[Rfam]
RNA sequence: GCUUUUGUAGUGUAGUGGUUAUCACGUAUCCUUCACACGGAUGAGGUCCUCGGUUCGAACCCGAGCAAAAGCA
Numbered sequence: 001g002c003u004u005u006u007g008u009a010g011u012g013u014a015g016u017g018g019u020u021a022u023c024a025c026g027u028a029u030c031c032u033u034c035a036c037a038c039g040g041a042u043g044a045g046g047u048c049c050u051c052g053g054u055u056c057g058a059a060c061c062c063g064a065g066c067a068a069a070a071g072c073a
Base pairs, nucleotide, nucleotide: 001072002071003070004069005068006067007066010025011024012023027043028042029041030040031039049065050064051063052062053061
Shown here is a 73-nucleotide RNA from Encephalitozoon cuniculi, a member of the family "tRNA". Taxonomically the source falls in Encephalitozoon cuniculi (Eukaryota, Opisthokonta, Microsporidia, Unikaryonidae). Pairs were carried over by alignment from the consensus structure, which is taken from published work. It is annotated as a transfer RNA. Gene Ontology term of the family: triplet codon-amino acid adaptor activity. It scores 64 bits against the family's covariance model.